[Rfam]
RNA sequence: UAUUGAUUAACGCUUAAUCUGAAUAGAGCGGGGGAACCAAUAUAUGGGGUGAAUCCCACAAUGCGUGGGUAGGGUUACUCUUUCAAUCCGAAUCCGUCAGCUAACCUCGUAAGCGUUGAAAGGGGAUGAA
Dot-bracket structure: ..........((((...(((....)))((((((....((.....))(((.....((((.......))))..((((..........))))...))).........)))))).))))...............
c-di-AMP riboswitch aptamer (ydaO/yuaA leader): a 130-nucleotide sequence from Desulfofarcimen acetoxidans. The organism belongs to Desulfofarcimen acetoxidans, within Bacteria. From the family's description: This family represents a conserved RNA structure found upstream of the ydaO and yuaA genes in Bacillus subtilis and related genes in other bacteria.